[Rfam]
Nucleotides: 095
Base pairs, nucleotide, nucleotide: 006083007082008081009080010079011044012043013042014041016038017030018029019028020027049076050075051074052073055070056069057068058067
Number, partner (000 for none) and nucleotide at each position: 001000g002000c003000g004000u005000a006083c007082u008081g009080u010079u011044a012043g013042g014041g015000g016038u017030g018029c019028u020027u021000a022000a023000g024000a025000a026000a027020g028019a029018g030017c031000u032000g033000a034000g035000a036000u037000u038016a039000a040000a041014c042013c043012c044011u045000u046000g047000a048000a049076c050075c051074u052073g053000a054000u055070a056069u057068g058067u059000u060000g061000u062000a063000a064000u065000u066000g067058g068057c069056a070055u071000c072000g073052u074051a075050g076049g077000g078000a079010a080009a081008c082007g083006g084000u085000a086000a087000a088000a089000u090000c091000u092000a093000u094000a095000a